[Rfam]
RNA sequence: AUGAGGGCAACCGAGUGUGGGAAGGAAGCGUGGAGCAUAAAUCAUGAGCCGAGGUACACGAACCGCAUAGAAGGCGCUGCCGGUCAGGGCGAGCGGGCAUGAAACCGCGAAACUCUUGUGGUCAAGGGUCAGGCGGCGUAAAUACGGCGGAGUGGGGAGAUAACGCAUGCAUGC
Numbered sequence: 001a002u003g004a005g006g007g008c009a010a011c012c013g014a015g016u017g018u019g020g021g022a023a024g025g026a027a028g029c030g031u032g033g034a035g036c037a038u039a040a041a042u043c044a045u046g047a048g049c050c051g052a053g054g055u056a057c058a059c060g061a062a063c064c065g066c067a068u069a070g071a072a073g074g075c076g077c078u079g080c081c082g083g084u085c086a087g088g089g090c091g092a093g094c095g096g097g098c099a100u101g102a103a104a105c106c107g108c109g110a111a112a113c114u115c116u117u118g119u120g121g122u123c124a125a126g127g128g129u130c131a132g133g134c135g136g137c138g139u140a141a142a143u144a145c146g147g148c149g150g151a152g153u154g155g156g157g158a159g160a161u162a163a164c165g166c167a168u169g170c171a172u173g174c
Base pairs, nucleotide, nucleotide: 001016002015005012006011028174029173030172031171032170035166036165042157043156045154046153049150050149051148063147064146065145067143068142074139075138076137078135079134080133081132083130087115088114089113093108094107095106096105
A member of the RNA family "Group II catalytic intron D1-D4-3" from Noviherbaspirillum sedimenti, 174 nucleotides long. The match comes from Rfam's covariance-model search (81 bits). Rfam links the family to the GO term Group II intron splicing. Rfam 15.1 lists 4,274 matches to the family in 1,585 species.